[Rfam]
RNA sequence: UAUUAAACAGGAUUGCAGCGGUAUCCUUUUGUUUUUUUUAAUACAAAAGAUUUAGCAGAAAGCCUGACGAACA
Numbered sequence: 001u002a003u004u005a006a007a008c009a010g011g012a013u014u015g016c017a018g019c020g021g022u023a024u025c026c027u028u029u030u031g032u033u034u035u036u037u038u039u040a041a042u043a044c045a046a047a048a049g050a051u052u053u054a055g056c057a058g059a060a061a062g063c064c065u066g067a068c069g070a071a072c073a
Stems, first nucleotide, its partner, number of pairs: 009065003013061002018056002023051003029046004035040001
Rfam assigns this 73-nucleotide sequence from Pedobacter sp. Leaf216 to the family "Flavo-1 RNA". The organism belongs to Pedobacter, within Bacteria. Pairs were carried over by alignment from the consensus structure, which is taken from published work. A search with the family's covariance model found it, with a score of 57 bits.